The record is a 76-nucleotide RNA sequence from Sphingobium sp. RAC03, which matches "Makes More Granules Regulator RNA (mmgR)" in Rfam. The match comes from Rfam's covariance-model search (55 bits). Its family is annotated with protein binding, DNA-templated transcription, termination and response to nitrogen compound in the Gene Ontology.
RNA sequence: AGAGCAGGCCUUUCAGGCAUCCUCUCCUAAAACUUUACGGGCUGACCCUUGUGGUCGGCCCUUUUUUUAUGCCUUG
Numbered sequence: 001a002g003a004g005c006a007g008g009c010c011u012u013u014c015a016g017g018c019a020u021c022c023u024c025u026c027c028u029a030a031a032a033c034u035u036u037a038c039g040g041g042c043u044g045a046c047c048c049u050u051g052u053g054g055u056c057g058g059c060c061c062u063u064u065u066u067u068u069a070u071g072c073c074u075u076g
Stems, first nucleotide, its partner, number of pairs: 008018004039061009